[Rfam]
Shown here is a 231-nucleotide sequence from Peribacillus asahii, a member of the family "T-box leader".
It is annotated as a cis-regulatory leader.
RNA sequence: CGUAAAGCGAAGAUCGGAAAUAGUAUGAUGAAUGGCGCUUUUCAGAGAGGAAACUAUAAGCUGAGAGGUUUCUAAGUAAGCAGCAUCAGAAGUCGUCCGUGAGCAAUUUUCGUGAACAACUGCAGUAGCGAAAAUCGGUAAACAACCGUUAUUUUAUUUGAGAGCCGGAAAAGGUUUAUUUGCUUUUUCGGAAAAAAGGUGGCACCGCGAACAACUUCCUUCGUCCUUUUA
Numbered sequence: 001c002g003u004a005a006a007g008c009g010a011a012g013a014u015c016g017g018a019a020a021u022a023g024u025a026u027g028a029u030g031a032a033u034g035g036c037g038c039u040u041u042u043c044a045g046a047g048a049g050g051a052a053a054c055u056a057u058a059a060g061c062u063g064a065g066a067g068g069u070u071u072c073u074a075a076g077u078a079a080g081c082a083g084c085a086u087c088a089g090a091a092g093u094c095g096u097c098c099g100u101g102a103g104c105a106a107u108u109u110u111c112g113u114g115a116a117c118a119a120c121u122g123c124a125g126u127a128g129c130g131a132a133a134a135u136c137g138g139u140a141a142a143c144a145a146c147c148g149u150u151a152u153u154u155u156a157u158u159u160g161a162g163a164g165c166c167g168g169a170a171a172a173g174g175u176u177u178a179u180u181u182g183c184u185u186u187u188u189c190g191g192a193a194a195a196a197a198g199g200u201g202g203c204a205c206c207g208c209g210a211a212c213a214a215c216u217u218c219c220u221u222c223g224u225c226c227u228u229u230u231a
Stems, first nucleotide, its partner, number of pairs: 007104002015099004026088005038076003049073006107134007136148003165191009196228004207224005
Dot-bracket structure: ......((......((((.......(((((.......(((........((((((.............))))))))).......))))).......))))...))..(((((((..............))))))).(((.......)))................(((((((((.........)))))))))....((((.......(((((........)))))))))...